[Rfam]
The family of this 105-nucleotide RNA from Papaver somniferum is "Small nucleolar RNA snoR109".
Rfam classes the family as an H/ACA-box small nucleolar RNA.
RNA sequence: CGGCUGUAGCUAUACCAAGGAAAAGAAGUUUACUGGCCGGUUGUUGCUGAGAUAUUCUGUAUCUCAAUUUAAUCGACAAAUCUGCUUACCGAACUUGUCACAAUU
Numbered sequence: 001c002g003g004c005u006g007u008a009g010c011u012a013u014a015c016c017a018a019g020g021a022a023a024a025g026a027a028g029u030u031u032a033c034u035g036g037c038c039g040g041u042u043g044u045u046g047c048u049g050a051g052a053u054a055u056u057c058u059g060u061a062u063c064u065c066a067a068u069u070u071a072a073u074c075g076a077c078a079a080a081u082c083u084g085c086u087u088a089c090c091g092a093a094c095u096u097g098u099c100a101c102a103a104u105u
Stems, first nucleotide, its partner, number of pairs: 024098001026096005035086003039082004043077004